[Rfam]
RNA sequence: CCUCAAGGACGACCUUGAGGACGACCUCGAGGACGACCUCA
Numbered sequence: 001c002c003u004c005a006a007g008g009a010c011g012a013c014c015u016u017g018a019g020g021a022c023g024a025c026c027u028c029g030a031g032g033a034c035g036a037c038c039u040c041a
Stems, first nucleotide, its partner, number of pairs: 001020008029040004
The record is a 41-nucleotide RNA from Ixodes scapularis, which matches "Guanidine-II riboswitch aptamer (mini-ykkC)" in Rfam. The base pairs follow the family's consensus structure, which is taken from published work. Rfam 15.1 lists 1,589 matches to the family in 1,229 species. Rfam links the family to the GO term regulation of gene expression. Taxonomically the source falls in Ixodes (Eukaryota, Protostomia, Arthropoda, Ixodida). It scores 34 bits against the family's covariance model.